Background:
Rfam assigns this 393-nucleotide part of an RNA from Vanilla planifolia to the family "Eukaryotic large subunit ribosomal RNA".
[Rfam]
RNA sequence: GGUAAGUAAAUAUUCAAAUGAGAACUUUGAAGGCCGAAGGGGGGAAAGGUUCCAUGUGAACGGCACUUGCACACGGGUUAGCCGAUCCUAAGAGACGGGGAAACCCGCCGAUACGCCAUUUGGCACAGCUCGUGCGGAGUUUAGUUAAAAUUUCGUCGCGGAUGCAUACGAUGGCAACGCUAACCGUGAGACGUGGGCUCUUGAAGAGUUUAUCUUUUUCGCUAUCACUGGUUUACUGGAAACGGCUCACCUGCAGGGGCUAAGCGGAAGAGCACCUGCAUGUUGAGCUUGUCCGAGCGCGUCAAGCACUUUUUGAAAAAUCCGGAUGGCCGAGUGCUUUCCAUCACGGCCGCAUUUCAUAACCGUGAUCAGUUCUAAGGAACAAAUGGUCGA
Numbered sequence: 001g002g003u004a005a006g007u008a009a010a011u012a013u014u015c016a017a018a019u020g021a022g023a024a025c026u027u028u029g030a031a032g033g034c035c036g037a038a039g040g041g042g043g044g045a046a047a048g049g050u051u052c053c054a055u056g057u058g059a060a061c062g063g064c065a066c067u068u069g070c071a072c073a074c075g076g077g078u079u080a081g082c083c084g085a086u087c088c089u090a091a092g093a094g095a096c097g098g099g100g101a102a103a104c105c106c107g108c109c110g111a112u113a114c115g116c117c118a119u120u121u122g123g124c125a126c127a128g129c130u131c132g133u134g135c136g137g138a139g140u141u142u143a144g145u146u147a148a149a150a151u152u153u154c155g156u157c158g159c160g161g162a163u164g165c166a167u168a169c170g171a172u173g174g175c176a177a178c179g180c181u182a183a184c185c186g187u188g189a190g191a192c193g194u195g196g197g198c199u200c201u202u203g204a205a206g207a208g209u210u211u212a213u214c215u216u217u218u219u220c221g222c223u224a225u226c227a228c229u230g231g232u233u234u235a236c237u238g239g240a241a242a243c244g245g246c247u248c249a250c251c252u253g254c255a256g257g258g259g260c261u262a263a264g265c266g267g268a269a270g271a272g273c274a275c276c277u278g279c280a281u282g283u284u285g286a287g288c289u290u291g292u293c294c295g296a297g298c299g300c301g302u303c304a305a306g307c308a309c310u311u312u313u314u315g316a317a318a319a320a321u322c323c324g325g326a327u328g329g330c331c332g333a334g335u336g337c338u339u340u341c342c343a344u345c346a347c348g349g350c351c352g353c354a355u356u357u358c359a360u361a362a363c364c365g366u367g368a369u370c371a372g373u374u375c376u377a378a379g380g381a382a383c384a385a386a387u388g389g390u391c392g393a
Stems, first nucleotide, its partner, number of pairs: 013031006032391004042376003047357002052076002055073003061069002083352002087137002092131002094109001096107001098105002115124003144153001157348002160344001164340001170181001172179002184325003188321001193310001196303003200297003203222001206220003226266001228264002243253003274292002278288002363372001